[Rfam]
RNA sequence: CUUUUCAUUUGACUACCACAUUUUUUCAUAAUAAUAGAUUUUAGCAGCUAUGAUUAUGGGAUAGAUUAAAAUUGCCACAGUCUGAAGAGGGAGAAUUUAGUUGUAUCUUCUUCCUAUUUAUUUGAAAUGGCUGAACAGACACAA
Numbered sequence: 001c002u003u004u005u006c007a008u009u010u011g012a013c014u015a016c017c018a019c020a021u022u023u024u025u026u027c028a029u030a031a032u033a034a035u036a037g038a039u040u041u042u043a044g045c046a047g048c049u050a051u052g053a054u055u056a057u058g059g060g061a062u063a064g065a066u067u068a069a070a071a072u073u074g075c076c077a078c079a080g081u082c083u084g085a086a087g088a089g090g091g092a093g094a095a096u097u098u099a100g101u102u103g104u105a106u107c108u109u110c111u112u113c114c115u116a117u118u119u120a121u122u123u124g125a126a127a128u129g130g131c132u133g134a135a136c137a138g139a140c141a142c143a144a
Stems, first nucleotide, its partner, number of pairs: 004060004016047001019044001074131004092119001093114001095112001
A member of the RNA family "Small nucleolar RNA SNORA29" from Molossus molossus, 144 nucleotides long. The source organism's lineage runs through Eukaryota, Craniata, Sarcopterygii, Laurasiatheria and Molossus. The base pairs follow the family's consensus structure, which was predicted with PFOLD. Gene Ontology terms of the family: RNA processing and nucleolus. The family's RNA type in Rfam is H/ACA-box small nucleolar RNA. ACA29 is a member of the H/ACA class of snoRNA that guide the sites of modification of uridines to pseudouridines. The family has 26 seed sequences and 960 matches in Rfam 15.1.